[Rfam]
The family of this 87-nucleotide sequence from Gossypium harknessii is "MIR7486 microRNA precursor family".
A search with the family's covariance model found it, with a score of 74 bits.
RNA sequence: CCUAGGGGCGCGUUUUGCUUACGUGGACACAAAGCGCACUUACGAGGAUACGUUUUUCUACCACAUAGGCAAAACGCGCCCCGAGGA
Numbered sequence: 001c002c003u004a005g006g007g008g009c010g011c012g013u014u015u016u017g018c019u020u021a022c023g024u025g026g027a028c029a030c031a032a033a034g035c036g037c038a039c040u041u042a043c044g045a046g047g048a049u050a051c052g053u054u055u056u057u058c059u060a061c062c063a064c065a066u067a068g069g070c071a072a073a074a075c076g077c078g079c080c081c082c083g084a085g086g087a
Base pairs, nucleotide, nucleotide: 001086002085003084005082006081007080008079009078010077011076012075013074014073015072016071017070018069019068020067021066023064024063025062026061031056032055033054034053035052036051038049040047041046
The organism belongs to Gossypium, within Eukaryota.